[Rfam]
A member of the RNA family "UnaL2 LINE 3' element" from Liparis tanakae, 54 nucleotides long. The family's consensus secondary structure is taken from published work. Rfam 15.1 lists 493,311 matches to the family in 99 species. Rfam's curators write: The eel long interspersed element (LINE) UnaL2 and its partner short interspersed element (SINE) share a conserved 3' tail containing a stem-loop that is critical for their retrotransposition. Presumably, the first step of retrotransposition is the recognition of their 3' tails by UnaL2-encoded reverse transcriptase. The solution structure of a 17-nucleotide RNA derived from the 3' tail of UnaL2 was determined by NMR.

RNA sequence: AAGCAAAGGUGCUGUAAGUCGCUUUGGAUAAAAGCGUCUGCUAAACGUCAUGUA
Numbered sequence: 001a002a003g004c005a006a007a008g009g010u011g012c013u014g015u016a017a018g019u020c021g022c023u024u025u026g027g028a029u030a031a032a033a034g035c036g037u038c039u040g041c042u043a044a045a046c047g048u049c050a051u052g053u054a
Base pairs, nucleotide, nucleotide: 013043014041015040016039020036021035022034023033024032025031